[Rfam]
RNA sequence: AGAUAUAUGGUUAAUCUGGCUGUGAGAUCCGAUAUGAAUGGGUUGAUCUGACUGAUCUGGCUAGCUUCGGCAGGUGUUCGCUUUCUUCCUCAACAUUCCAUGUGUGUUUCUCCUGAUGCUGUGUGCUUGGUUAAUGAAGACAGCCUCCCCAAUAGACACAAUAUUGUUCAUUGCUCAAGUGCUCCCCUGCUGGAAGCUCUAAGUAAGCUCAGGAUCCGUUUGCAUAUGAAUGUAGGGUAGUCAAACACCCAAUACUGAAGACAUAUCCAAAGGAGAAGCUUCAUGCAGCAGUCUGCCAGUGGCUUU
Numbered sequence: 001a002g003a004u005a006u007a008u009g010g011u012u013a014a015u016c017u018g019g020c021u022g023u024g025a026g027a028u029c030c031g032a033u034a035u036g037a038a039u040g041g042g043u044u045g046a047u048c049u050g051a052c053u054g055a056u057c058u059g060g061c062u063a064g065c066u067u068c069g070g071c072a073g074g075u076g077u078u079c080g081c082u083u084u085c086u087u088c089c090u091c092a093a094c095a096u097u098c099c100a101u102g103u104g105u106g107u108u109u110c111u112c113c114u115g116a117u118g119c120u121g122u123g124u125g126c127u128u129g130g131u132u133a134a135u136g137a138a139g140a141c142a143g144c145c146u147c148c149c150c151a152a153u154a155g156a157c158a159c160a161a162u163a164u165u166g167u168u169c170a171u172u173g174c175u176c177a178a179g180u181g182c183u184c185c186c187c188u189g190c191u192g193g194a195a196g197c198u199c200u201a202a203g204u205a206a207g208c209u210c211a212g213g214a215u216c217c218g219u220u221u222g223c224a225u226a227u228g229a230a231u232g233u234a235g236g237g238u239a240g241u242c243a244a245a246c247a248c249c250c251a252a253u254a255c256u257g258a259a260g261a262c263a264u265a266u267c268c269a270a271a272g273g274a275g276a277a278g279c280u281u282c283a284u285g286c287a288g289c290a291g292u293c294u295g296c297c298a299g300u301g302g303c304u305u306u
Base pairs, nucleotide, nucleotide: 002098003097006092009089010088013084014083018081024078025077027075028074029073031071035069036068039063042058045057046056047055048054107161108160109158111156112155113130114129115128116127118126119125131152132151139147140146179246180245182240183239185237186236187235188234189233190232197228203223204222205221206220207219269306270305271304275297278292279291280290282288
RNA: 7SK RNA
Organism: Hippolais icterina